[Rfam]
RNA sequence: CAUGAUAAAACCAAACCUAUCGUGAGAUAGGGACGGAAAGCCACGGAUCUUAAUGAGAUAGCCGGGUUGCCUUGA
Numbered sequence: 001c002a003u004g005a006u007a008a009a010a011c012c013a014a015a016c017c018u019a020u021c022g023u024g025a026g027a028u029a030g031g032g033a034c035g036g037a038a039a040g041c042c043a044c045g046g047a048u049c050u051u052a053a054u055g056a057g058a059u060a061g062c063c064g065g066g067u068u069g070c071c072u073u074g075a
Stems, first nucleotide, its partner, number of pairs: 004071001011036002016031006034061001039068004044064003047059003
Shown here is a 75-nucleotide RNA from Desulfococcus multivorans, a member of the family "c-di-GMP-I-GGC riboswitch aptamer". Clan: c-di-GMP_I riboswitch clan. Its family is annotated with cyclic-di-GMP binding in the Gene Ontology.